[Rfam]
RNA: Bacterial small signal recognition particle RNA
RNA sequence: ACUCGGUCCCUGUGUGGCGUCAUGCCGCCCAAUCCCCCCAGGGCAGGAAUGCAGCAAGGGUAAGCGGUCUCUGGCGGGUGCGCAGGGGCUUUUUCAU
Numbered sequence: 001a002c003u004c005g006g007u008c009c010c011u012g013u014g015u016g017g018c019g020u021c022a023u024g025c026c027g028c029c030c031a032a033u034c035c036c037c038c039c040a041g042g043g044c045a046g047g048a049a050u051g052c053a054g055c056a057a058g059g060g061u062a063a064g065c066g067g068u069c070u071c072u073g074g075c076g077g078g079u080g081c082g083c084a085g086g087g088g089c090u091u092u093u094u095c096a097u
Stems, first nucleotide, its partner, number of pairs: 005090010015078001018076005024068005035060003043052003